[Rfam]
RNA sequence: AAAUCAGAUGACGAGAUUGGAUUAAAAAUUCUCACGACGGUCGUCUGAGAGACCUUCAAUGUGUUUGUUUGAUGCAUCGAUCCAAUGUUUCUGAUGAUU
Numbered sequence: 001a002a003a004u005c006a007g008a009u010g011a012c013g014a015g016a017u018u019g020g021a022u023u024a025a026a027a028a029u030u031c032u033c034a035c036g037a038c039g040g041u042c043g044u045c046u047g048a049g050a051g052a053c054c055u056u057c058a059a060u061g062u063g064u065u066u067g068u069u070u071g072a073u074g075c076a077u078c079g080a081u082c083c084a085a086u087g088u089u090u091c092u093g094a095u096g097a098u099u
Base pairs, nucleotide, nucleotide: 001099002098004096051065052064053063
Record summary
This 99-nucleotide sequence from Gossypium australe belongs to the Rfam family "Small nucleolar RNA Z161/Z228". On this family, see Chen et al., Nucleic Acids Res 2003: "The high diversity of snoRNAs in plants: identification and comparative study of 120 snoRNA genes from Oryza sativa". The match comes from Rfam's covariance-model search (73 bits). The source organism's lineage runs through Eukaryota, Streptophytina, Magnoliopsida, Gunneridae and Gossypium. Its Rfam clan is "SNORD35 clan".